[Rfam]
RNA sequence: UCCUUACUUGAUAGUCUUGCAGAGCUUUUACCAAGACCUCAAGCACAAUUUUGCAACCCUGUCAUCAGUUGGCAGGGUG
Numbered sequence: 001u002c003c004u005u006a007c008u009u010g011a012u013a014g015u016c017u018u019g020c021a022g023a024g025c026u027u028u029u030a031c032c033a034a035g036a037c038c039u040c041a042a043g044c045a046c047a048a049u050u051u052u053g054c055a056a057c058c059c060u061g062u063c064a065u066c067a068g069u070u071g072g073c074a075g076g077g078u079g
Stems, first nucleotide, its partner, number of pairs: 022039001024037001026035003056078009